[Rfam]
RNA: Guanidine-I riboswitch aptamer
Organism: Planosporangium mesophilum
RNA sequence: GCGGGGCGCAUCUAGGGUUCCGUCGCCGGGUUCGGCGGGUCUGGUCCGAGAGAUGCAGGCGGUGACGCCGGUUGCCGGCCGUCCCCGUCCCACGGCGGGAGAAAAGCCCGGGAGGC
Numbered sequence: 001g002c003g004g005g006g007c008g009c010a011u012c013u014a015g016g017g018u019u020c021c022g023u024c025g026c027c028g029g030g031u032u033c034g035g036c037g038g039g040u041c042u043g044g045u046c047c048g049a050g051a052g053a054u055g056c057a058g059g060c061g062g063u064g065a066c067g068c069c070g071g072u073u074g075c076c077g078g079c080c081g082u083c084c085c086c087g088u089c090c091c092a093c094g095g096c097g098g099g100a101g102a103a104a105a106g107c108c109c110g111g112g113a114g115g116c
Stems, first nucleotide, its partner, number of pairs: 008056005015047002020044002022041001023038006058089005064083004091111001093114001097109003